RNA sequence: GUCCCCAUACGAAAGGUAUGGGGGAAGGAGAUUGUUGUCAACUCUCCUGCUAGAAUAUUCUCGAGAAUAUUUAGC
Numbered sequence: 001g002u003c004c005c006c007a008u009a010c011g012a013a014a015g016g017u018a019u020g021g022g023g024g025a026a027g028g029a030g031a032u033u034g035u036u037g038u039c040a041a042c043u044c045u046c047c048u049g050c051u052a053g054a055a056u057a058u059u060c061u062c063g064a065g066a067a068u069a070u071u072u073a074g075c
Base pairs, nucleotide, nucleotide: 003023004022005021006020007019008018009017010016054070057068058067059066060065
Dot-bracket structure: ..((((((((.....))))))))..............................(..((((....)))).).....
This 75-nucleotide RNA sequence belongs to the Rfam family "RT-6 RNA".
Rfam's curators put it in the seed alignment.